Record summary
The record is a 114-nucleotide RNA from Esox lucius, which matches "mraW RNA" in Rfam. Rfam classes the family as a cis-regulatory element.

RNA sequence: UCCUAGGUCUUCCCCGGGGUCUCCUCCCGGUAGGACGGGACCGGAACACCUUCCCAGGAAGGCGUUCCGGUCCCGUCCCACCGGGAGGAGACCCCGGGGAAGACCUAGGACACG
Numbered sequence: 001u002c003c004u005a006g007g008u009c010u011u012c013c014c015c016g017g018g019g020u021c022u023c024c025u026c027c028c029g030g031u032a033g034g035a036c037g038g039g040a041c042c043g044g045a046a047c048a049c050c051u052u053c054c055c056a057g058g059a060a061g062g063c064g065u066u067c068c069g070g071u072c073c074c075g076u077c078c079c080a081c082c083g084g085g086a087g088g089a090g091a092c093c094c095c096g097g098g099g100a101a102g103a104c105c106u107a108g109g110a111c112a113c114g
Stems, first nucleotide, its partner, number of pairs: 010101007018093002021090011033078015